[Rfam]
RNA sequence: GUUUUAUGAUGGCUAGUUUUUUGUGCCAACUUGACUGGGCCACAGAAUGCCCAGAUAGCCAGUUAAAC
Numbered sequence: 001g002u003u004u005u006a007u008g009a010u011g012g013c014u015a016g017u018u019u020u021u022u023g024u025g026c027c028a029a030c031u032u033g034a035c036u037g038g039g040c041c042a043c044a045g046a047a048u049g050c051c052c053a054g055a056u057a058g059c060c061a062g063u064u065a066a067a068c
Base pairs, nucleotide, nucleotide: 001068002067003066004065
The family of this 68-nucleotide RNA sequence from Carlito syrichta is "Small nucleolar RNA SNORD66". Pairs were carried over by alignment from the consensus structure, which was predicted with RNAalifold. NCBI's taxonomy places the organism under Eukaryota, Amniota, Boreoeutheria, Primates, Carlito. snoRNA HBII-142 is part of the C/D family of snoRNAs. It is the human orthologue of the mouse MBII-142 snoRNA and is predicted to guide 2'O-ribose methylation of small 18S rRNA at residue C1272. It is annotated as a C/D-box small nucleolar RNA. Its family is annotated with RNA processing and nucleolus in the Gene Ontology.